[Rfam]
RNA sequence: CAGCGGGCCACUCCUCCCCACCGAGGAGCGUGCUAUCUGGAAGGGUAGGUUAC
Numbered sequence: 001c002a003g004c005g006g007g008c009c010a011c012u013c014c015u016c017c018c019c020a021c022c023g024a025g026g027a028g029c030g031u032g033c034u035a036u037c038u039g040g041a042a043g044g045g046u047a048g049g050u051u052a053c
Stems, first nucleotide, its partner, number of pairs: 011028006033048006
Shown here is a 53-nucleotide sequence from Zhengella mangrovi, a member of the family "serC leader". The literature on the family includes a 2005 paper in Genome Biol by Corbino et al., "Evidence for a second class of S-adenosylmethionine riboswitches and other regulatory RNA motifs in alpha-proteobacteria". The match comes from Rfam's covariance-model search (61 bits). From the family's description: This family is a putative regulatory RNA structure that is found upstream of the serC-serA operon in some alpha-proteobacteria. The final stem of the structure overlaps the ribosome binding site of the serC reading frame.